Source information:
This 127-nucleotide sequence from Clostridium perfringens belongs to the Rfam family "Ribosomal protein L10 leader". It is annotated as a cis-regulatory leader. A reference for the family is Iben and Draper (2008), "Specific interactions of the L10(L12)4 ribosomal protein complex with mRNA, rRNA, and L11", Biochemistry.

RNA sequence: AAAAGUGAAUGAAAGUUUCCGUAGACAGUAGGUGCUGAAAGGCAUAACGUAGAACAACCUACCGAGGGCAAUUAUAGUGUAUAUAAUAGUCUUCCUAUGUCUACGGGAAGACUUUUCUUAUUAUAUA
Numbered sequence: 001a002a003a004a005g006u007g008a009a010u011g012a013a014a015g016u017u018u019c020c021g022u023a024g025a026c027a028g029u030a031g032g033u034g035c036u037g038a039a040a041g042g043c044a045u046a047a048c049g050u051a052g053a054a055c056a057a058c059c060u061a062c063c064g065a066g067g068g069c070a071a072u073u074a075u076a077g078u079g080u081a082u083a084u085a086a087u088a089g090u091c092u093u094c095c096u097a098u099g100u101c102u103a104c105g106g107g108a109a110g111a112c113u114u115u116u117c118u119u120a121u122u123a124u125a126u127a
Stems, first nucleotide, its partner, number of pairs: 028062006034043003089112008098103001